[Rfam]
RNA: glmS glucosamine-6-phosphate activated ribozyme aptamer
RNA sequence: AGAUGUGAACAAGCGCCAGGACUGCUUCGGCAGUUGACGAGGACCAGGUUGAUCGAAAGAUUCGGCGGAUGACCUGGAGGCCAGGUACAGCCUGAGGCAGCAGACAAAACCAGCCCGCGAGAGCUGAACAGACCUGCUGUCCGUACCCUC
Dot-bracket structure: ...................((((((....))))))........(((((....((((.....)))).......)))))((((........))))..(((((((........((((.(....).))))........))))))).........